[Rfam]
RNA sequence: AGGUAAGGCCUGCUGCACCUUUAUCACUGCAGGCACUCGGCCGUGCUGUGGGCUCAUGAGUGGGCCUUAGACGUGAAUCGUCGAUGGUACGGUGUGAGGAGGGGUUGAAUGCCCC
Numbered sequence: 001a002g003g004u005a006a007g008g009c010c011u012g013c014u015g016c017a018c019c020u021u022u023a024u025c026a027c028u029g030c031a032g033g034c035a036c037u038c039g040g041c042c043g044u045g046c047u048g049u050g051g052g053c054u055c056a057u058g059a060g061u062g063g064g065c066c067u068u069a070g071a072c073g074u075g076a077a078u079c080g081u082c083g084a085u086g087g088u089a090c091g092g093u094g095u096g097a098g099g100a101g102g103g104g105u106u107g108a109a110u111g112c113c114c115c
Base pairs, nucleotide, nucleotide: 001020002019003018004017008034009033010032011031012030013029036098037097038096039095040093041092042091043090044089045088046087047086050067051066052065053064054063055062056061070082071081072080073079101115102114103113104112105111
Annotation
The family of this 115-nucleotide RNA from Paenibacillus sp. D9 is "epsC RNA". The source organism's lineage runs through Bacteria, Bacilli, Caryophanales, Paenibacillaceae and Paenibacillus. The family's consensus secondary structure is taken from published work. Rfam classes the family as a cis-regulatory element.